[Rfam]
RNA: skipping-rope RNA
RNA sequence: GAAGAUAGAGGUUGAGAACCUGUCACCAACGCGGCAUCUCUUAUGAGAUGUGUCAGAAAUGUAGGAGACCCGACAGUCCUACCUAUCGUU
Number, nucleotide and partner (000 for none) at each position: 001g090002a089003a000004g087005a086006u085007a084008g083009a000010g000011g030012u029013u028014g027015a000016g000017a000018a000019c000020c076021u075022g074023u073024c072025a000026c000027c014028a013029a012030c011031g000032c056033g000034g051035c050036a049037u048038c047039u046040c045041u000042u000043a000044u000045g040046a039047g038048a037049u036050g035051u034052g000053u000054c000055a000056g032057a000058a000059a000060u000061g082062u081063a080064g079065g078066a000067g000068a000069c000070c000071c000072g024073a023074c022075a021076g020077u000078c065079c064080u063081a062082c061083c008084u007085a006086u005087c004088g000089u002090u001